Notes:
A member of the RNA family "7SK RNA" from Callipepla squamata, 341 nucleotides long.
RNA sequence: GGAUGUGAUGGCGAUCUGGCUGCGACAUCUGUCACCCUGUUGAUCGCCAGGGUUGAUUCGGCUGAUCUGGCUGGCUAGGCGGGUGUCCCCUUCCUCCCUCACCGCUCCAUGUGCGUCCCUCCCAAAGCUGCGUGCUCAGUCGAAGAGGAUGACCUUCCCCGAUAGAGACGGUACCGUUCAUCUGUCAAGGGUAUAUGGUAGCUGCACUCCCCUGCUAGAACCUCCAAAAAAAGCUAUGAAAACUAUUUGUUUUCUGUCUGCUUUCCUUUUGAUCAGUGAUUACUAUUUUGUAAAGUUUUUGGAAAAUAACAUGCUGUCAAAGACUAUGUCUUUGAUUUGCU
Numbered sequence: 001g002g003a004u005g006u007g008a009u010g011g012c013g014a015u016c017u018g019g020c021u022g023c024g025a026c027a028u029c030u031g032u033c034a035c036c037c038u039g040u041u042g043a044u045c046g047c048c049a050g051g052g053u054u055g056a057u058u059c060g061g062c063u064g065a066u067c068u069g070g071c072u073g074g075c076u077a078g079g080c081g082g083g084u085g086u087c088c089c090c091u092u093c094c095u096c097c098c099u100c101a102c103c104g105c106u107c108c109a110u111g112u113g114c115g116u117c118c119c120u121c122c123c124a125a126a127g128c129u130g131c132g133u134g135c136u137c138a139g140u141c142g143a144a145g146a147g148g149a150u151g152a153c154c155u156u157c158c159c160c161g162a163u164a165g166a167g168a169c170g171g172u173a174c175c176g177u178u179c180a181u182c183u184g185u186c187a188a189g190g191g192u193a194u195a196u197g198g199u200a201g202c203u204g205c206a207c208u209c210c211c212c213u214g215c216u217a218g219a220a221c222c223u224c225c226a227a228a229a230a231a232a233g234c235u236a237u238g239a240a241a242a243c244u245a246u247u248u249g250u251u252u253u254c255u256g257u258c259u260g261c262u263u264u265c266c267u268u269u270u271g272a273u274c275a276g277u278g279a280u281u282a283c284u285a286u287u288u289u290g291u292a293a294a295g296u297u298u299u300u301g302g303a304a305a306a307u308a309a310c311a312u313g314c315u316g317u318c319a320a321a322g323a324c325u326a327u328g329u330c331u332u333u334g335a336u337u338u339g340c341u
Stems, first nucleotide, its partner, number of pairs: 001108003005102004010097002013093002018090002024087010035074002037070003042067004046062003116171002119167003122139001125136001127135002140162003147158003201287001203285001233284001316336008
The family has 45 seed sequences and 49,373 matches in Rfam 15.1. A search with the family's covariance model found it, with a score of 224 bits. Clan: 7SK clan. On this family, see Wassarman and Steitz, Mol Cell Biol 1991: "Structural analyses of the 7SK ribonucleoprotein (RNP), the most abundant human small RNP of unknown function". The source organism's lineage runs through Eukaryota, Eumetazoa, Euteleostomi, Sauria and Callipepla. Rfam's curators write: 7SK was discovered as an abundant small nuclear RNA in the mid-70s but a possible function has only recently been suggested. Two independent studies have found that 7SK RNA binds the CDK9/cyclin T complex (known as elongation factor P-TEFb).